[Rfam]
RNA sequence: UUAUCUCUGUUGAAUCGAAAUCUUAAGUUUAUACUUGGGACAUUUAUGUAGAGAGAUAUGGGGAUAA
Dot-bracket structure: ((((((((((....((....((((((((....))))))))..........)).....))))))))))
Source information:
A member of the RNA family "DUF3800-VIII RNA", 67 nucleotides long. Rfam's curators write: Bacteroidetes, Cyanobacteria, Firmicutes, Planctomycetes (1 example), Proteobacteria, Tenericutes (1 example). The sequence is in the family's curated seed alignment.